RNA sequence: UCGGCGGACGGCGAUGGAUCCCGCCUGAGCAGGGCUCGUCCUGCUCGAACCGCCGUCCGGCUGAUGGUUCCUGUCUCGUC
Numbered sequence: 001u002c003g004g005c006g007g008a009c010g011g012c013g014a015u016g017g018a019u020c021c022c023g024c025c026u027g028a029g030c031a032g033g034g035c036u037c038g039u040c041c042u043g044c045u046c047g048a049a050c051c052g053c054c055g056u057c058c059g060g061c062u063g064a065u066g067g068u069u070c071c072u073g074u075c076u077c078g079u080c
Base pairs, nucleotide, nucleotide: 010025011024012023013022016071017070018069020067021066052061053060054059
Dot-bracket structure: .........((((..[[[.[[))))..........................(((....)))....]].]]].........